[Rfam]
A member of the RNA family "THF (Tetrahydrofolate) riboswitch aptamer" from Thermoanaerobacteraceae bacterium SP2, 104 nucleotides long. Its family is annotated with tetrahydrofolate metabolic process in the Gene Ontology. About the family: Tetrahydrofolate (THF) riboswitch was first reported for Ames et al. as an RNA motif in 5' untranslated (5'-UTR)regions of folate transport and biosynthesis genes in Firmicutes genomes. The source organism's lineage runs through Bacteria, Bacillati, Bacillota, Thermoanaerobacterales and Thermoanaerobacteraceae. On this family, see Ames et al., Chem Biol 2010: "A eubacterial riboswitch class that senses the coenzyme tetrahydrofolate". A search with the family's covariance model found it, with a score of 70 bits.

Nucleotides: 104
Base pairs, nucleotide, nucleotide: 002103003102004101005100010092011091012090013089015087016086017085018084019082020081021080025054026053028052029051030050031049032048033047034046038098039097040096041095042094058079059078060077
Number, partner (000 for none) and nucleotide at each position: 001000u002103g003102c004101a005100g006000a007000g008000u009000a010092g011091g012090u013089g014000u015087c016086c017085c018084g019082c020081g021080u022000c023000a024000a025054g026053u027000g028052c029051c030050g031049g032048g033047g034046g035000a036000u037000g038098g039097g040096a041095c042094g043000u044000u045000g046034c047033c048032u049031c050030c051029g052028g053026a054025c055000g056000a057000a058079a059078a060077g061000c062000c063000u064000g065000g066000c067000g068000u069000a070000a071000g072000c073000u074000a075000g076000a077060c078059u079058u080021g081020c082019g083000g084018u085017g086016g087015g088000c089013c090012a091011c092010c093000g094042c095041g096040u097039u098038c099000g100005c101004u102003g103002c104000c